[Rfam]
RNA: Small nucleolar RNA Z221/R21b
Organism: Populus tomentosa
RNA sequence: GGGUAGUGACAAGGAUUUUGAGAAAGUCAUACACCACUCUGAUUUUAUCUGUUCUGUUAAAUCUCUUAUACCUAUAUAUUUCUGAGCCC
Numbered sequence: 001g002g003g004u005a006g007u008g009a010c011a012a013g014g015a016u017u018u019u020g021a022g023a024a025a026g027u028c029a030u031a032c033a034c035c036a037c038u039c040u041g042a043u044u045u046u047a048u049c050u051g052u053u054c055u056g057u058u059a060a061a062u063c064u065c066u067u068a069u070a071c072c073u074a075u076a077u078a079u080u081u082c083u084g085a086g087c088c089c
Stems, first nucleotide, its partner, number of pairs: 001089004